A member of the RNA family "U1 spliceosomal RNA" from Dipodomys ordii, 146 nucleotides long.
[Rfam]
RNA sequence: AUACUUACCUGGCAGGGGAGACACUAUGAUCACGAAGGUGGUUUUCUUGGGGCAAGGCUUAUCCAUUACAUUCUGGAUGUGCUGACCCCUGUGAUUUCUCCAAGUGUGGGAAACUCCACUGUGGAAUUUGUGGUAGUGGGGGACUG
Dot-bracket structure: ...........((((((((((.(((((..........)))))))))))((((...(((.(((((..........))))).)))...))))..(((((.((.......)).))).))..))))........................
Gene Ontology terms of the family: pre-mRNA 5'-splice site binding, mRNA 5'-splice site recognition and U1 snRNP. Rfam describes the family as follows. U1 is a small nuclear RNA (snRNA) component of the spliceosome (involved in pre-mRNA splicing).